Shown here is a 194-nucleotide RNA from Ruminococcus sp. AM42-11, a member of the family "Group II catalytic intron D1-D4-3". Group II introns are found in rRNA, tRNA and mRNA of organelles in fungi, plants and protists, and also in mRNA in bacteria. A reference for the family is Lehmann and Schmidt (2003), "Group II introns: structure and catalytic versatility of large natural ribozymes", Crit Rev Biochem Mol Biol. NCBI's taxonomy places the organism under Bacteria, Bacillati, Clostridia, Oscillospiraceae, Ruminococcus. It scores 130 bits against the family's covariance model.

[Rfam]
RNA sequence: UCCAUCGUGAGGUGGAAUCUGAAGGAAGCCGGAUGUGGGAACAGACUAACCACGGGCAAAUCUCUGGUCUGACGAACAGAAAUCUCAUAUAAGGUUAUGCAUGAGGGUAAGACUGCCACCCAAGUCAAAGCCCAAUAACUACACGGAAUCCUACGUGAUAAAUGAGGCAGAUGGAUGGAGAGGAAGAAACGUGU
Number, nucleotide and partner (000 for none) at each position: 001u016002c015003c014004a013005u012006c011007g000008u000009g000010a000011g006012g005013u004014g003015g002016a001017a000018u000019c000020u000021g000022a000023a000024g000025g000026a000027a000028g000029c000030c000031g000032g000033a000034u000035g000036u000037g000038g000039g000040a000041a000042c000043a000044g000045a000046c000047u000048a000049a000050c000051c193052a192053c191054g000055g000056g000057c186058a000059a000060a000061u181062c180063u179064c178065u177066g176067g172068u171069c170070u169071g168072a000073c000074g000075a000076a000077c000078a000079g000080a000081a000082a000083u167084c166085u165086c164087a163088u162089a000090u000091a000092a000093g000094g159095u158096u157097a000098u155099g154100c000101a152102u000103g150104a149105g133106g132107g131108u130109a000110a000111g126112a125113c124114u123115g000116c000117c000118a000119c000120c000121c000122a000123a114124g113125u112126c111127a000128a000129a000130g108131c107132c106133c105134a000135a000136u000137a000138a000139c000140u000141a000142c000143a000144c000145g000146g000147a000148a000149u104150c103151c000152u101153a000154c099155g098156u000157g096158a095159u094160a000161a000162a088163u087164g086165a085166g084167g083168c071169a070170g069171a068172u067173g000174g000175a000176u066177g065178g064179a063180g062181a061182g000183g000184a000185a000186g057187a000188a000189a000190c000191g053192u052193g051194u000